Annotation:
The family of this 37-nucleotide sequence from Sciurus vulgaris is "MAT2A 3'UTR stem loop D". Rfam classes the family as a cis-regulatory element. Pairs were carried over by alignment from the consensus structure, which is taken from published work. Rfam 15.1 lists 422 matches to the family in 262 species. The literature on the family includes a 2011 paper in Genome Res by Parker et al., "New families of human regulatory RNA structures identified by comparative analysis of vertebrate genomes".
[Rfam]
RNA sequence: UCUGGGGGCAGGCGUGAUCUACAGCCAGCUCCUCAGA
Numbered sequence: 001u002c003u004g005g006g007g008g009c010a011g012g013c014g015u016g017a018u019c020u021a022c023a024g025c026c027a028g029c030u031c032c033u034c035a036g037a
Stems, first nucleotide, its partner, number of pairs: 001037008009028001011026003